[Rfam]
RNA sequence: CUUCAUAUUUGGCAUAGUUUCCGAAAGGAUUCUGCGCAAAGCCACGGGUCUAAGGUAAGUGUACUAUGAUAGCCGGGUUGCCACG
Numbered sequence: 001c002u003u004c005a006u007a008u009u010u011g012g013c014a015u016a017g018u019u020u021c022c023g024a025a026a027g028g029a030u031u032c033u034g035c036g037c038a039a040a041g042c043c044a045c046g047g048g049u050c051u052a053a054g055g056u057a058a059g060u061g062u063a064c065u066a067u068g069a070u071a072g073c074c075g076g077g078u079u080g081c082c083a084c085g
Stems, first nucleotide, its partner, number of pairs: 012037002017032001020029003040079004045075003048070003055064003